The family of this 90-nucleotide RNA from Dermacoccus nishinomiyaensis is "SAM riboswitch aptamer (S box leader)". A search with the family's covariance model found it, with a score of 56 bits. NCBI's taxonomy places the organism under Bacteria, Bacillati, Actinomycetota, Actinomycetes, Dermacoccus. Rfam links the family to the GO term regulation of gene expression.
RNA sequence: AUCCCAUCCAGAGCGGCCGAGAGAUCUGGCUCGUCGACGCCGCAGCAACCGACCCUCACGGAACGGUGCUCACGCCAGAAGCGAUGGAGU
Numbered sequence: 001a002u003c004c005c006a007u008c009c010a011g012a013g014c015g016g017c018c019g020a021g022a023g024a025u026c027u028g029g030c031u032c033g034u035c036g037a038c039g040c041c042g043c044a045g046c047a048a049c050c051g052a053c054c055c056u057c058a059c060g061g062a063a064c065g066g067u068g069c070u071c072a073c074g075c076c077a078g079a080a081g082c083g084a085u086g087g088a089g090u
Stems, first nucleotide, its partner, number of pairs: 001090002004087005013043005021032003026078004044070004049066002053060001074082001